[Rfam]
Shown here is a 101-nucleotide RNA from Streptococcus criceti, a member of the family "Streptococcus sRNA SpF25". NCBI's taxonomy places the organism under Bacteria, Bacillati, Bacilli, Streptococcus, Streptococcus criceti. On this family, see Mann et al., PLoS Pathog 2012: "Control of virulence by small RNAs in Streptococcus pneumoniae". The sequence is in the family's curated seed alignment. Pairs were carried over by alignment from the consensus structure, which was predicted with mfold.

RNA sequence: ACAUGGGGUAGCCUUUCUAGUAGGUUUUAGUCAACUCUAUUUUAUCAAGGCUAGCUCACUAAAGCAAAAAGCAACGGCAUCAAAACCGUUGCUUUUUGUCU
Number, nucleotide and partner (000 for none) at each position: 001a000002c000003a000004u058005g057006g000007g055008g000009u053010a052011g051012c000013c000014u000015u000016u050017c049018u048019a000020g000021u000022a000023g046024g045025u044026u000027u000028u039029a038030g037031u000032c000033a000034a000035c000036u000037c030038u029039a028040u000041u000042u000043u000044a025045u024046c023047a000048a018049g017050g016051c011052u010053a009054g000055c007056u000057c005058a004059c000060u000061a000062a101063a000064g099065c098066a097067a096068a095069a094070a093071g092072c091073a090074a089075c088076g087077g086078c000079a000080u000081c000082a000083a000084a000085a000086c077087c076088g075089u074090u073091g072092c071093u070094u069095u068096u067097u066098g065099u064100c000101u062